The record is an 83-nucleotide RNA from Sporolactobacillus laevolacticus, which matches "c-di-GMP-I riboswitch aptamer" in Rfam. Lineage of the source: Bacteria > Caryophanales > Sporolactobacillaceae > Sporolactobacillus > Sporolactobacillus laevolacticus. Rfam's curators write: GEMM was predicted in a large-scale screen for bacterial structured RNA regulatory elements.
RNA sequence: AAAUGAAAAGAGCAAACUAACCGAAAGAUUAGGACGCAAAGCUGCGGGUCUAAAGCGAAAGCAAAGACAGCCGGGUUACCAUU
Numbered sequence: 001a002a003a004u005g006a007a008a009a010g011a012g013c014a015a016a017c018u019a020a021c022c023g024a025a026a027g028a029u030u031a032g033g034a035c036g037c038a039a040a041g042c043u044g045c046g047g048g049u050c051u052a053a054a055g056c057g058a059a060a061g062c063a064a065a066g067a068c069a070g071c072c073g074g075g076u077u078a079c080c081a082u083u
Base pairs, nucleotide, nucleotide: 012037013036017032018031019030020029022027040077041076042075043074045073046072047071048068049067050066055062056061